This 136-nucleotide RNA from Ramphastos sulfuratus belongs to the Rfam family "Small nucleolar RNA SNORA15".
Rfam 15.1 lists 974 matches to the family in 624 species.
Taxonomically the source falls in Ramphastos (Eukaryota, Teleostomi, Euteleostomi, Dipnotetrapodomorpha).
Rfam's curators write: ACA15 is a member of the H/ACA class of snoRNA that guide the sites of modification of uridines to pseudouridines.
The match comes from Rfam's covariance-model search (72 bits).
RNA sequence: GCAUGGAUGAAUUCUGCACUAGCUUUCCUCAGUAGCUAAUGCAGUCAGACACUAUGCCAGAGCAAGCUCCUUUUUCACACUGAUUGGCAUGCUCCUUACAUGAGAAGGGGCACGCCUUUGGAAGUGGGGUACAGAA
Numbered sequence: 001g002c003a004u005g006g007a008u009g010a011a012u013u014c015u016g017c018a019c020u021a022g023c024u025u026u027c028c029u030c031a032g033u034a035g036c037u038a039a040u041g042c043a044g045u046c047a048g049a050c051a052c053u054a055u056g057c058c059a060g061a062g063c064a065a066g067c068u069c070c071u072u073u074u075u076c077a078c079a080c081u082g083a084u085u086g087g088c089a090u091g092c093u094c095c096u097u098a099c100a101u102g103a104g105a106a107g108g109g110g111c112a113c114g115c116c117u118u119u120g121g122a123a124g125u126g127g128g129g130u131a132c133a134g135a136a
Base pairs, nucleotide, nucleotide: 001057002056003055004054005053006052014044015043016042017041018040068129069128070127072124073123074122075121076120077119086116087115088114090112091111092110093109094108095107096106